[Rfam]
RNA sequence: GAUUAUCGUAAUUGGUGUGCAGGCGCUGGUUGCAAACUGUCUCUAAGUUGCUGCGGUUAAGUAGUCGUGGUGAGAAACGUUAAAGGAAACGGCAUUGUAAAAGUGUUAGGU
Number, nucleotide and partner (000 for none) at each position: 001g000002a000003u000004u000005a000006u000007c000008g033009u032010a031011a030012u029013u028014g000015g026016u025017g024018u023019g000020c000021a000022g000023g018024c017025g016026c015027u000028g013029g012030u011031u010032g009033c008034a000035a000036a000037c000038u110039g000040u086041c085042u000043c000044u082045a081046a080047g000048u073049u000050g071051c070052u069053g000054c067055g066056g065057u064058u000059a000060a000061g000062u000063a000064g057065u056066c055067g054068u000069g052070g051071u050072g000073a048074g000075a000076a000077a000078c000079g000080u046081u045082a044083a000084a000085g041086g040087a000088a000089a000090c000091g107092g106093c105094a104095u103096u102097g000098u000099a000100a000101a000102a096103g095104u094105g093106u092107u091108a000109g000110g038111u000
Group II catalytic intron D1-D4-2: a 111-nucleotide RNA sequence from Paraflavitalea soli. About the family: Group II introns are found in rRNA, tRNA and mRNA of organelles in fungi, plants and protists, and also in mRNA in bacteria. Taxonomically the source falls in Paraflavitalea (Bacteria, Pseudomonadati, Chitinophagia, Chitinophagaceae). Rfam 15.1 lists 1,231 matches to the family in 625 species.